[Rfam]
RNA sequence: GUGCCUUAAACUAAUGAGUAAGGAAAAUAUUGAGCCUUGGUGAUGCUUGGCUCGAGCAUAACCAAAUUCAUGCUAUGGGAUUUUUGUAGAGGUACAGGUCGUCCCCUUGAGCCUCCUGUCUACUUUACAGGAGGAACGGGUGACAGCGAUCUGCCUC
Numbered sequence: 001g002u003g004c005c006u007u008a009a010a011c012u013a014a015u016g017a018g019u020a021a022g023g024a025a026a027a028u029a030u031u032g033a034g035c036c037u038u039g040g041u042g043a044u045g046c047u048u049g050g051c052u053c054g055a056g057c058a059u060a061a062c063c064a065a066a067u068u069c070a071u072g073c074u075a076u077g078g079g080a081u082u083u084u085u086g087u088a089g090a091g092g093u094a095c096a097g098g099u100c101g102u103c104c105c106c107u108u109g110a111g112c113c114u115c116c117u118g119u120c121u122a123c124u125u126u127a128c129a130g131g132a133g134g135a136a137c138g139g140g141u142g143a144c145a146g147c148g149a150u151c152u153g154c155c156u157c
Stems, first nucleotide, its partner, number of pairs: 004023005032053005039046001055074004089157005096152007106140002109137001112134002115131005